[Rfam]
RNA sequence: GGGAGUUGAGGCCUCCCGGAGCCGGUCUGUAGGGGCUAGCUUCAAACCACUCCAUGCUGCCGCGCUCAAAAGGCGUGGUGGUGAGCGAUGGAGAAAAGGCGGCGCGUGACGCCGUCAGGU
Numbered sequence: 001g002g003g004a005g006u007u008g009a010g011g012c013c014u015c016c017c018g019g020a021g022c023c024g025g026u027c028u029g030u031a032g033g034g035g036c037u038a039g040c041u042u043c044a045a046a047c048c049a050c051u052c053c054a055u056g057c058u059g060c061c062g063c064g065c066u067c068a069a070a071a072g073g074c075g076u077g078g079u080g081g082u083g084a085g086c087g088a089u090g091g092a093g094a095a096a097a098g099g100c101g102g103c104g105c106g107u108g109a110c111g112c113c114g115u116c117a118g119g120u
Stems, first nucleotide, its partner, number of pairs: 001017005018043005025036004048119001050093006056082002059079003063075004098116006
The record is a 120-nucleotide RNA sequence from Paracoccus liaowanqingii, which matches "Group II catalytic intron D1-D4-2" in Rfam. Gene Ontology term of the family: Group II intron splicing. The organism belongs to Paracoccus, within Bacteria. A reference for the family is Bonen and Vogel (2001), "The ins and outs of group II introns", Trends Genet. Pairs were carried over by alignment from the consensus structure.